[Rfam]
RNA: transfer-messenger RNA
Organism: Lactobacillus acidophilus
RNA sequence: GGGGAUGUUUUGGGAUUCGACAGGCGUAGACCCGCAUUGACUGCGAUUCGUAGGUUACGUCUACGUAAAAACGUUACAGUUAAAUAUAACUGCAAAUAACAAAAAUUCUUACGCAUUAGCUGCUUAAUUUAGCGCAUGCGUUGCUCUUGACCAGUUUACUCGUGACUGGUUUUCGAGUAUCAACUUUAGCGAGUUACGUUUAACUACCUCACCUGAAUAGUUAAAAAGAGUCUUAACAGGUUAGCUGGUUCAUACUAGCCCUGUUAUAUGGCGUUUUGAACUAGUGAAGUUUAAGUAAUAUAACUAUGAUCGUAGAGGUUAAUGACGAGAUGCGUUUGGACAGGGGUUCAAUUCCCCUCAUCUCCAUAG
Numbered sequence: 001g002g003g004g005a006u007g008u009u010u011u012g013g014g015a016u017u018c019g020a021c022a023g024g025c026g027u028a029g030a031c032c033c034g035c036a037u038u039g040a041c042u043g044c045g046a047u048u049c050g051u052a053g054g055u056u057a058c059g060u061c062u063a064c065g066u067a068a069a070a071a072c073g074u075u076a077c078a079g080u081u082a083a084a085u086a087u088a089a090c091u092g093c094a095a096a097u098a099a100c101a102a103a104a105a106u107u108c109u110u111a112c113g114c115a116u117u118a119g120c121u122g123c124u125u126a127a128u129u130u131a132g133c134g135c136a137u138g139c140g141u142u143g144c145u146c147u148u149g150a151c152c153a154g155u156u157u158a159c160u161c162g163u164g165a166c167u168g169g170u171u172u173u174c175g176a177g178u179a180u181c182a183a184c185u186u187u188a189g190c191g192a193g194u195u196a197c198g199u200u201u202a203a204c205u206a207c208c209u210c211a212c213c214u215g216a217a218u219a220g221u222u223a224a225a226a227a228g229a230g231u232c233u234u235a236a237c238a239g240g241u242u243a244g245c246u247g248g249u250u251c252a253u254a255c256u257a258g259c260c261c262u263g264u265u266a267u268a269u270g271g272c273g274u275u276u277u278g279a280a281c282u283a284g285u286g287a288a289g290u291u292u293a294a295g296u297a298a299u300a301u302a303a304c305u306a307u308g309a310u311c312g313u314a315g316a317g318g319u320u321a322a323u324g325a326c327g328a329g330a331u332g333c334g335u336u337u338g339g340a341c342a343g344g345g346g347u348u349c350a351a352u353u354c355c356c357c358u359c360a361u362c363u364c365c366a367u368a369g
Base pairs, nucleotide, nucleotide: 001365002364003363004362005361006360007359021338022337023336024335025334026333027332028331032327035324036323037322038321039320040319041318042317044312045311046310047309048308049065050064051063052062053061054077055076057074058073059072060071117138118137121134122133123132142179143178144177145176146175149171150170151169152168153167154166155165156164158194159193160192161191162190163189199225200224201223202222203221204220205219206218211241212240213239214238215237244285245284246283247282248281249280250279251278252277258272259271260270263304264303265302266301269298342358343357344356345355346354